[Rfam]
This 74-nucleotide RNA sequence from Mytilus coruscus belongs to the Rfam family "mir-133 microRNA precursor family". From the family's description: mir-133 was first experimentally characterised in mouse and homologues have since been discovered in several other species. The mature sequence is excised from the 3' arm of the hairpin. The base pairs follow the family's consensus structure, which was predicted with PFOLD. It scores 61 bits against the family's covariance model.
RNA sequence: UUACUGUAGUUGGUUGAACUUGGGCCAAAUCAGUCAAAUAAGGUCAUUUGGUCCCCUUCAACCAGCUGUAGCCA
Numbered sequence: 001u002u003a004c005u006g007u008a009g010u011u012g013g014u015u016g017a018a019c020u021u022g023g024g025c026c027a028a029a030u031c032a033g034u035c036a037a038a039u040a041a042g043g044u045c046a047u048u049u050g051g052u053c054c055c056c057u058u059c060a061a062c063c064a065g066c067u068g069u070a071g072c073c074a
Stems, first nucleotide, its partner, number of pairs: 004071003008067011022053002025051006